RNA sequence: UUACGAAAAAGGCAAACUUAUCCGAAAGGGAAGGACGCAAAGCCGAGGGCCUAAAGCACUAUUGUUAUGGCAGCCUAGCUACCGGA
Numbered sequence: 001u002u003a004c005g006a007a008a009a010a011g012g013c014a015a016a017c018u019u020a021u022c023c024g025a026a027a028g029g030g031a032a033g034g035a036c037g038c039a040a041a042g043c044c045g046a047g048g049g050c051c052u053a054a055a056g057c058a059c060u061a062u063u064g065u066u067a068u069g070g071c072a073g074c075c076u077a078g079c080u081a082c083c084g085g086a
Stems, first nucleotide, its partner, number of pairs: 012038002017033003021030003041080003046076003049071003056065003

The family of this 86-nucleotide RNA sequence from Ornithinibacillus hominis is "c-di-GMP-I riboswitch aptamer".
The family's consensus secondary structure is taken from published work.
A search with the family's covariance model found it, with a score of 73 bits.